[Rfam]
RNA sequence: GGAGGAGUAUCGAAGUGGUUAUAACGAGAACGACUCGAAAUCGUUUGACGGUGUAAGCCGUCCGUGGGUUCGAAUCCCACCUCCUCCG
Numbered sequence: 001g002g003a004g005g006a007g008u009a010u011c012g013a014a015g016u017g018g019u020u021a022u023a024a025c026g027a028g029a030a031c032g033a034c035u036c037g038a039a040a041u042c043g044u045u046u047g048a049c050g051g052u053g054u055a056a057g058c059c060g061u062c063c064g065u066g067g068g069u070u071c072g073a074a075u076c077c078c079a080c081c082u083c084c085u086c087c088g
Base pairs, nucleotide, nucleotide: 001087002086003085004084005083006082007081010027011026012025029045030044031043032042033041064080065079066078067077068076
RNA: tRNA
Organism: Desulfosporosinus fructosivorans